[Rfam]
RNA: PhotoRC-I RNA
RNA sequence: AGGCAGGGAUUCCUGUCCCUUCCAUAAACCGUCCCCUCGGGGGC
Dot-bracket structure: .((.(((((......))))).)).......(((((....)))))
Numbered sequence: 001a002g003g004c005a006g007g008g009a010u011u012c013c014u015g016u017c018c019c020u021u022c023c024a025u026a027a028a029c030c031g032u033c034c035c036c037u038c039g040g041g042g043g044c
Stems, first nucleotide, its partner, number of pairs: 002023002005020005031044005